[Rfam]
RNA sequence: AAGGAUAUACUUUCAGGAAUCAUCUCUAUAGUAUGUUACUAGAGAAGCUUCUCUGGGGCUGGGGAUUUAGCUCAGCAGCAUAAGCACCUGCCUUGUAAGCAGGCAGUUGUGAGUUUGAUCCCUGGUACUGAUAAAAAAAAAAAGAGAGAGAGAGAAGCUUCUCUGAUUGUGUAGAGCACCAGAAGCCACGAGGAGGACGUGUAGUGUUCCCUCCUGAGUGUGAAGCCAGCUCUUGGUGUUGCUUGAGUGCAACUGCCACUUGCCAUUGAUGAUUGUUCUUGCUGUCUCCUCCGAGUUAGUGAGAGGGGAGGAACACAGUCUGAGUGGU
Numbered sequence: 001a002a003g004g005a006u007a008u009a010c011u012u013u014c015a016g017g018a019a020u021c022a023u024c025u026c027u028a029u030a031g032u033a034u035g036u037u038a039c040u041a042g043a044g045a046a047g048c049u050u051c052u053c054u055g056g057g058g059c060u061g062g063g064g065a066u067u068u069a070g071c072u073c074a075g076c077a078g079c080a081u082a083a084g085c086a087c088c089u090g091c092c093u094u095g096u097a098a099g100c101a102g103g104c105a106g107u108u109g110u111g112a113g114u115u116u117g118a119u120c121c122c123u124g125g126u127a128c129u130g131a132u133a134a135a136a137a138a139a140a141a142a143a144g145a146g147a148g149a150g151a152g153a154g155a156a157g158c159u160u161c162u163c164u165g166a167u168u169g170u171g172u173a174g175a176g177c178a179c180c181a182g183a184a185g186c187c188a189c190g191a192g193g194a195g196g197a198c199g200u201g202u203a204g205u206g207u208u209c210c211c212u213c214c215u216g217a218g219u220g221u222g223a224a225g226c227c228a229g230c231u232c233u234u235g236g237u238g239u240u241g242c243u244u245g246a247g248u249g250c251a252a253c254u255g256c257c258a259c260u261u262g263c264c265a266u267u268g269a270u271g272a273u274u275g276u277u278c279u280u281g282c283u284g285u286c287u288c289c290u291c292c293g294a295g296u297u298a299g300u301g302a303g304a305g306g307g308g309a310g311g312a313a314c315a316c317a318g319u320c321u322g323a324g325u326g327g328u
Stems, first nucleotide, its partner, number of pairs: 002040002005037001006035006015027003049173001054171001185328005204316007212308004218276003229263002234258004238253005279302002282299003286295003
The record is a 328-nucleotide RNA sequence from Cavia porcellus, which matches "Small nucleolar RNA U3" in Rfam. On this family, see Speckmann et al., Mol Cell Biol 1999: "Nuclear retention elements of U3 small nucleolar RNA". Rfam's curators write: Small nucleolar RNAs (snoRNAs) are involved in the processing and modification of rRNA in the nucleolus. NCBI's taxonomy places the organism under Eukaryota, Opisthokonta, Deuterostomia, Dipnotetrapodomorpha, Cavia. The base pairs follow the family's consensus structure, which is taken from published work. The family's RNA type in Rfam is C/D-box small nucleolar RNA.